[Rfam]
Shown here is a 130-nucleotide RNA sequence from Molossus molossus, a member of the family "Small nucleolar RNA SNORA44".
Rfam describes the family as follows. ACA44 is a member of the H/ACA class of snoRNA that guide the sites of modification of uridines to pseudouridines.
The literature on the family includes a 2001 paper in EMBO J by Huttenhofer et al., "RNomics: an experimental approach that identifies 201 candidates for novel, small, non-messenger RNAs in mouse".
Its family is annotated with nucleolus and RNA processing in the Gene Ontology.
RNA sequence: CAGCGUGUUUCCAAGGCUGUGGCUGGCGGUAGCCAUGGGAUCUCCAACUGCAUGCCAGAACAACCCGGAAAGACUUUGACAGCCCAGGUCAGCCUAAUACCUGCAGCUGCCACUCGUCUUUCCUGUACUA
Numbered sequence: 001c002a003g004c005g006u007g008u009u010u011c012c013a014a015g016g017c018u019g020u021g022g023c024u025g026g027c028g029g030u031a032g033c034c035a036u037g038g039g040a041u042c043u044c045c046a047a048c049u050g051c052a053u054g055c056c057a058g059a060a061c062a063a064c065c066c067g068g069a070a071a072g073a074c075u076u077u078g079a080c081a082g083c084c085c086a087g088g089u090c091a092g093c094c095u096a097a098u099a100c101c102u103g104c105a106g107c108u109g110c111c112a113c114u115c116g117u118c119u120u121u122c123c124u125g126u127a128c129u130a
Base pairs, nucleotide, nucleotide: 011038012037015034016033017032018031019030020029067123068122069121070120071119072118082110083109085103086102087101088100